[Rfam]
RNA sequence: CCCUUUCAAAGCAAAUGGCUGCAAUUCUUUGUAUUCAUCAAGUAUUGCACUGUUUUGCUUUGAAAGGU
Numbered sequence: 001c002c003c004u005u006u007c008a009a010a011g012c013a014a015a016u017g018g019c020u021g022c023a024a025u026u027c028u029u030u031g032u033a034u035u036c037a038u039c040a041a042g043u044a045u046u047g048c049a050c051u052g053u054u055u056u057g058c059u060u061u062g063a064a065a066g067g068u
Base pairs, nucleotide, nucleotide: 002067003066004065005064006063007062008061009060010059011058012057013056014055015054020049021048022047023046024045025044027042028041029040031039
mir-2059 microRNA precursor family: a 68-nucleotide RNA sequence from Branchiostoma belcheri. Rfam 15.1 lists 2 matches to the family in 2 species. The base pairs follow the family's consensus structure, which was predicted with RNAalifold.